[Rfam]
RNA sequence: UAUACGCAACGUAUUAACCCGAAGACAGCAGGUGGUACCGUAAAGUACCGUAAGACAGAACGCCUGCCGAGGAAAGAUACAAACGAUUUAGUUUGUUCAACCCCGUGUCUUUUGGCAUGGGGUUUUCCUUUUAGAAA
Numbered sequence: 001u002a003u004a005c006g007c008a009a010c011g012u013a014u015u016a017a018c019c020c021g022a023a024g025a026c027a028g029c030a031g032g033u034g035g036u037a038c039c040g041u042a043a044a045g046u047a048c049c050g051u052a053a054g055a056c057a058g059a060a061c062g063c064c065u066g067c068c069g070a071g072g073a074a075a076g077a078u079a080c081a082a083a084c085g086a087u088u089u090a091g092u093u094u095g096u097u098c099a100a101c102c103c104c105g106u107g108u109c110u111u112u113u114g115g116c117a118u119g120g121g122g123u124u125u126u127c128c129u130u131u132u133a134g135a136a137a
Stems, first nucleotide, its partner, number of pairs: 028067006034049005100123010